A member of the RNA family "ZMP/ZTP riboswitch aptamer (pfl RNA motif)" from Motilibacter rhizosphaerae, 90 nucleotides long.
The family's consensus secondary structure is taken from published work.

[Rfam]
RNA sequence: CGGGGCAGUCGUGACUGGCGCGAAAGACGGGUCACCGUCGUGGAGCGGCUGCGUCGACCGUGACGGGAGCCGCGCGCCUGGGCCUGCCGC
Numbered sequence: 001c002g003g004g005g006c007a008g009u010c011g012u013g014a015c016u017g018g019c020g021c022g023a024a025a026g027a028c029g030g031g032u033c034a035c036c037g038u039c040g041u042g043g044a045g046c047g048g049c050u051g052c053g054u055c056g057a058c059c060g061u062g063a064c065g066g067g068a069g070c071c072g073c074g075c076g077c078c079u080g081g082g083c084c085u086g087c088c089g090c
Base pairs, nucleotide, nucleotide: 003054005052006051007050008049009048010047011046012045015042017078018077019076020075021074027038028037029036030035067085069083070082071081
Dot-bracket structure: ..(.((((((((..(.[[[[[.....((((....))))...)..)))))))).)............(.(((..]]]]]..))).).....